[Rfam]
RNA sequence: GGGAGCCGGGUGGGGUGCUGGGCCCUGCUUCCGUGGGUUUCAGCUCUCGUUGGUGCUGGUGCUCGCGUGGGCCACGUCACCCUCCCUUCACCCUU
Numbered sequence: 001g002g003g004a005g006c007c008g009g010g011u012g013g014g015g016u017g018c019u020g021g022g023c024c025c026u027g028c029u030u031c032c033g034u035g036g037g038u039u040u041c042a043g044c045u046c047u048c049g050u051u052g053g054u055g056c057u058g059g060u061g062c063u064c065g066c067g068u069g070g071g072c073c074a075c076g077u078c079a080c081c082c083u084c085c086c087u088u089c090a091c092c093c094u095u
Base pairs, nucleotide, nucleotide: 001093002092003091005089008086009085010084012082013081014080016079017078018076019074020073021072023071024070025069032067033066034065035064036063037062038061040059041058042057043056044055046053047052

The family of this 95-nucleotide RNA from Equus caballus is "mir-9128 microRNA precursor family". The family has 2 seed sequences and 19 matches in Rfam 15.1. Pairs were carried over by alignment from the consensus structure, which was predicted with RNAalifold.